[Rfam]
RNA sequence: GAUGACAAAUCUCCGGAAUCGCUGUAAAACUUUGAUGAAAACCUCGAACCCUUUGUCUGAUGACAGCUGACUGAGUCAU
Numbered sequence: 001g002a003u004g005a006c007a008a009a010u011c012u013c014c015g016g017a018a019u020c021g022c023u024g025u026a027a028a029a030c031u032u033u034g035a036u037g038a039a040a041a042c043c044u045c046g047a048a049c050c051c052u053u054u055g056u057c058u059g060a061u062g063a064c065a066g067c068u069g070a071c072u073g074a075g076u077c078a079u
Base pairs, nucleotide, nucleotide: 002079003078004077005076

The record is a 79-nucleotide RNA from Gouania willdenowi, which matches "Small nucleolar RNA MBII-202" in Rfam. A reference for the family is Huttenhofer et al. (2001), "RNomics: an experimental approach that identifies 201 candidates for novel, small, non-messenger RNAs in mouse", EMBO J. The match comes from Rfam's covariance-model search (59 bits). The family has 30 seed sequences and 745 matches in Rfam 15.1.